[Rfam]
mir-2060 microRNA precursor family: a 92-nucleotide sequence from Branchiostoma lanceolatum.

RNA sequence: GUUUACCUGUGUGGAUGGUGUUCUGUAUCAAGGACAGGUGUGAUUACAUGUGUGUGGAUGGCAUUCAGCACCAAGGACAGGCAUGUUUGGGU
Numbered sequence: 001g002u003u004u005a006c007c008u009g010u011g012u013g014g015a016u017g018g019u020g021u022u023c024u025g026u027a028u029c030a031a032g033g034a035c036a037g038g039u040g041u042g043a044u045u046a047c048a049u050g051u052g053u054g055u056g057g058a059u060g061g062c063a064u065u066c067a068g069c070a071c072c073a074a075g076g077a078c079a080g081g082c083a084u085g086u087u088u089g090g091g092u
Stems, first nucleotide, its partner, number of pairs: 004083001006081005016073007025064002028061003032053001034051003038047003

The family's consensus secondary structure was predicted with RNAalifold.